[Rfam]
RNA sequence: ACUGUAGCGCGGAAAAUAGUUGAUGAAGGCAAAGCCGCGCGCCUGGUCGAUGCAAUGAAACAGCGGGUUCCAGUCGAACAUGGCAAGCAUGAAGCCCGGCAGCGUGUUGGCCACGAACAUCUUGCCCGAUGCGAUCAUGUUGGCACGCUG
Numbered sequence: 001a002c003u004g005u006a007g008c009g010c011g012g013a014a015a016a017u018a019g020u021u022g023a024u025g026a027a028g029g030c031a032a033a034g035c036c037g038c039g040c041g042c043c044u045g046g047u048c049g050a051u052g053c054a055a056u057g058a059a060a061c062a063g064c065g066g067g068u069u070c071c072a073g074u075c076g077a078a079c080a081u082g083g084c085a086a087g088c089a090u091g092a093a094g095c096c097c098g099g100c101a102g103c104g105u106g107u108u109g110g111c112c113a114c115g116a117a118c119a120u121c122u123u124g125c126c127c128g129a130u131g132c133g134a135u136c137a138u139g140u141u142g143g144c145a146c147g148c149u150g
Base pairs, nucleotide, nucleotide: 003029005027010022011021012020036052037051038049039048061150062149063148064147065146067079068078069077070076083144084143086141087140088139089138090137091136095131097128098127099126100124101123102122104120105119107116108115109114
Dot-bracket structure: ..(.(....(((.......)))....).)......((((........)).))........(((((.((((.....))))...((.((((((...(.((((((.((.(((....)))..)).))).)))..)....)))))).)).)))))

The family of this 150-nucleotide RNA from Salinihabitans flavidus is "Ruegeria cis2 sRNA". The base pairs follow the family's consensus structure, which was predicted with RNAfold. The organism belongs to Salinihabitans, within Bacteria.